RNA sequence: UAAUGAUGAUAGAAAAAAGGAAGCUUUGUUGGACCAAAGCUCCCCCUUGUAGAGCCGUAUAAGACGGUGUAUGACUAUUGGUUAAAUA
Number, nucleotide and partner (000 for none) at each position: 001u000002a000003a000004u000005g000006a000007u000008g000009a000010u000011a000012g000013a000014a000015a000016a000017a000018a000019g000020g000021a000022a000023g000024c000025u038026u037027u036028g035029u000030u000031g000032g000033a000034c000035c028036a027037a026038a025039g000040c000041u000042c000043c000044c000045c000046c000047u000048u000049g000050u000051a000052g000053a000054g068055c067056c066057g065058u064059a000060u000061a000062a000063g000064a058065c057066g056067g055068u054069g000070u000071a000072u000073g000074a000075c000076u000077a000078u000079u000080g000081g000082u000083u000084a000085a000086a000087u000088a000
This 88-nucleotide sequence from Loigolactobacillus rennini belongs to the Rfam family "RNA anti-toxin A". It is annotated as an antitoxin RNA.